RNA sequence: CCUUAAACUGCUAUAGCAGCGCAUCAUGGUUUGCAGCAACGUAGUAAAGGUGCGAACCAUUAUUUGCUGCUUUAGAAUUUUAAGG
Numbered sequence: 001c002c003u004u005a006a007a008c009u010g011c012u013a014u015a016g017c018a019g020c021g022c023a024u025c026a027u028g029g030u031u032u033g034c035a036g037c038a039a040c041g042u043a044g045u046a047a048a049g050g051u052g053c054g055a056a057c058c059a060u061u062a063u064u065u066g067c068u069g070c071u072u073u074a075g076a077a078u079u080u081u082a083a084g085g
Stems, first nucleotide, its partner, number of pairs: 001085006013073001015071007023063002026060010
The record is an 85-nucleotide sequence from Megalops atlanticus, which matches "mir-15 microRNA precursor family" in Rfam. The organism belongs to Megalops, within Eukaryota. Rfam describes the family as follows. This family represents the related mir-15a and mir-15b sequences. In humans miR-15a and miR-16 are clustered within 0.5 kb at 13q14. This region has been shown to be deleted in more than half of B cell chronic lymphocytic leukaemias (CLL). Both miR-15a and miR-16 are deleted or down-regulated in more than two thirds of CLL cases. The family is grouped with related families in Rfam's "mir-15 clan". On this family, see Lagos-Quintana et al., Science 2001: "Identification of novel genes coding for small expressed RNAs".